[Rfam]
RNA sequence: UCGGCGAGCCGUGACUGGCGCUUGGGUGGAGUACCACCAGGGAGCGGCUCGACCUCCUUGGUCAAUGCCGUGCGCCUGGGCGAUCCCG
Numbered sequence: 001u002c003g004g005c006g007a008g009c010c011g012u013g014a015c016u017g018g019c020g021c022u023u024g025g026g027u028g029g030a031g032u033a034c035c036a037c038c039a040g041g042g043a044g045c046g047g048c049u050c051g052a053c054c055u056c057c058u059u060g061g062u063c064a065a066u067g068c069c070g071u072g073c074g075c076c077u078g079g080g081c082g083a084u085c086c087c088g
Stems, first nucleotide, its partner, number of pairs: 003053001005051008015041002017076005026037004066082004
Shown here is an 88-nucleotide RNA from Streptomyces sp. SID8354, a member of the family "ZMP/ZTP riboswitch aptamer (pfl RNA motif)". Pairs were carried over by alignment from the consensus structure, which is taken from published work. Taxonomically the source falls in Streptomyces (Bacteria, Actinomycetes, Kitasatosporales, Streptomycetaceae). A search with the family's covariance model found it, with a score of 60 bits.